[Rfam]
RNA: ZMP/ZTP riboswitch aptamer (pfl RNA motif)
Organism: Ornithinimicrobium avium
RNA sequence: CUGGCUGCACACGACUGGCGCAGGUGGACCACCACCGGGGAGUGACGUUCGUGGGCAUCGCCCGCCUGGGUGCCCAGC
Number, nucleotide and partner (000 for none) at each position: 001c000002u000003g050004g049005c000006u047007g046008c000009a000010c044011a043012c042013g000014a000015c039016u038017g066018g065019c064020g063021c000022a000023g000024g035025u034026g033027g032028a000029c000030c000031a000032c027033c026034a025035c024036c000037g000038g016039g015040g000041a000042g012043u011044g010045a000046c007047g006048u000049u004050c003051g000052u000053g000054g000055g073056c072057a071058u070059c069060g000061c000062c000063c020064g019065c018066c017067u000068g000069g059070g058071u057072g056073c055074c000075c000076a000077g000078c000